[Rfam]
RNA sequence: GUCCUGUGACCGCUGAAUCCGCCUUCGGGCGGAACCGGGGACCCAAGUCCUUCCGGGGCGAAUCGGCACUUCGGUGCCGUAGGGCAGCUUCCACGCCCGAGCCCGUCAGCUAACCCGGUAAGCGGCAUGGAAGCAAGGA
Number, nucleotide and partner (000 for none) at each position: 001g000002u000003c000004c000005u000006g000007u000008g000009a000010c000011c124012g123013c122014u121015g000016a000017a000018u033019c032020c031021g030022c029023c000024u000025u000026c000027g000028g000029g022030c021031g020032g019033a018034a119035c118036c117037g116038g115039g114040g000041a000042c000043c000044c055045a000046a000047g000048u000049c000050c000051u000052u000053c000054c000055g044056g104057g103058g102059c000060g000061a000062a000063u000064c079065g078066g077067c076068a000069c000070u000071u000072c000073g000074g000075u000076g067077c066078c065079g064080u000081a000082g098083g097084g096085c095086a000087g000088c000089u000090u000091c000092c000093a000094c000095g085096c084097c083098c082099g000100a000101g000102c058103c057104c056105g000106u000107c000108a000109g000110c000111u000112a000113a000114c039115c038116c037117g036118g035119u034120a000121a014122g013123c012124g011125g000126c000127a000128u000129g000130g000131a000132a000133g000134c000135a000136a000137g000138g000139a000
RNA: c-di-AMP riboswitch aptamer (ydaO/yuaA leader)